[Rfam]
RNA sequence: UUGGUAUAAAUCAUUGUGUAUCUACAUUUUGAAAAUAGAACCCACACAAAAUGAUGGGACACACAAUAAUUUAAUCCAA
Number, nucleotide and partner (000 for none) at each position: 001u079002u078003g077004g076005u000006a000007u073008a072009a071010a070011u069012c000013a067014u066015u065016g064017u063018g062019u000020a000021u000022c057023u056024a055025c053026a052027u051028u050029u049030u048031g047032a000033a000034a000035a000036u000037a000038g000039a000040a000041c000042c000043c000044a000045c000046a000047c031048a030049a029050a028051a027052u026053g025054a000055u024056g023057g022058g000059a000060c000061a000062c018063a017064c016065a015066a014067u013068a000069a011070u010071u009072u008073a007074a000075u000076c004077c003078a002079a001
MIR5269 microRNA precursor family: a 79-nucleotide RNA from Medicago truncatula.
The base pairs follow the family's consensus structure, which was predicted with RNAalifold.
The family has 2 seed sequences and 389 matches in Rfam 15.1.
Lineage of the source: Eukaryota > Viridiplantae > Euphyllophyta > Fabaceae > Medicago.